[Rfam]
RNA sequence: UACGACACCCAUCAAAGAAGUAGUUCCCCACCCCGGAGCUACUUUUCCAUAUUCCAAAUUC
Number, nucleotide and partner (000 for none) at each position: 001u000002a000003c000004g000005a000006c000007a000008c000009c000010c000011a000012u000013c000014a000015a000016a000017g045018a044019a043020g042021u041022a040023g039024u038025u037026c036027c035028c000029c000030a000031c000032c000033c000034c000035g027036g026037a025038g024039c023040u022041a021042c020043u019044u018045u017046u000047c000048c000049a000050u000051a000052u000053u000054c000055c000056a000057a000058a000059u000060u000061c000

A member of the RNA family "Plastid-psbN 5UTR RNA" from Populus trichocarpa, 61 nucleotides long.
For this family Rfam cites "Retrograde signaling in plants: A critical review focusing on the GUN pathway and beyond" (Richter et al., Plant Commun, 2023).
It scores 79 bits against the family's covariance model.
The family's RNA type in Rfam is cis-regulatory element.
Rfam's curators write: Plastid psbN is a non-coding RNA (ncRNA) recognised in plastids. It was reported as a conserved 11 stem-loop in the prime untranslated region (5UTR) of psbN genes. It has been reported that the motif is retained in a subset of mature transcripts in barley, which can suggests a possible role in transcript alternative 5 prime processing.
The base pairs follow the family's consensus structure, which was predicted with LocARNA.
Taxonomically the source falls in Populus (Eukaryota, Viridiplantae, Streptophytina, Tracheophyta).